[Rfam]
RNA sequence: GCUAAUUGCUACGAUAUCAUUAUAAUGCCCGACCUUAGUACCGAUCGCAGUGUCAAAUUCAUCGUAAAAAGGUGACAAAUCGGUGACAUCAGGUUAUUUUUU
Numbered sequence: 001g002c003u004a005a006u007u008g009c010u011a012c013g014a015u016a017u018c019a020u021u022a023u024a025a026u027g028c029c030c031g032a033c034c035u036u037a038g039u040a041c042c043g044a045u046c047g048c049a050g051u052g053u054c055a056a057a058u059u060c061a062u063c064g065u066a067a068a069a070a071g072g073u074g075a076c077a078a079a080u081c082g083g084u085g086a087c088a089u090c091a092g093g094u095u096a097u098u099u100u101u102u
Base pairs, nucleotide, nucleotide: 008028009027014023015022016021031095032094033093034092035091039085040084041083042082043081044080045075046074047073048072
Rfam assigns this 102-nucleotide RNA sequence from Yersinia enterocolitica to the family "Yersinia sRNA 190". For this family Rfam cites "Transcriptomic profiling of Yersinia pseudotuberculosis reveals reprogramming of the Crp regulon by temperature and uncovers Crp as a master regulator of small RNAs" (Nuss et al., PLoS Genet, 2015). It is annotated as a small RNA. Rfam describes the family as follows. The sRNA was identified by and is confirmed to have a stable secondary structure by using genome-wide structure probing at different temperatures. The function is unknown.